[Rfam]
Fluoride riboswitch aptamer (crcB RNA motif): a 67-nucleotide sequence from Pollutimonas bauzanensis. The match comes from Rfam's covariance-model search (58 bits). NCBI's taxonomy places the organism under Bacteria, Pseudomonadati, Pseudomonadota, Burkholderiales, Pollutimonas. The family's consensus secondary structure is taken from published work.

RNA sequence: GCACCCAACGGAGAUGGCAUUCCUCCGCUAACCGCCGCGCUCUGCGGCUGAUGAUGCCUACAAGUUC
Numbered sequence: 001g002c003a004c005c006c007a008a009c010g011g012a013g014a015u016g017g018c019a020u021u022c023c024u025c026c027g028c029u030a031a032c033c034g035c036c037g038c039g040c041u042c043u044g045c046g047g048c049u050g051a052u053g054a055u056g057c058c059u060a061c062a063a064g065u066u067c
Base pairs, nucleotide, nucleotide: 010026011025012024013023016058017057018056019055020054021053034048035047036046037045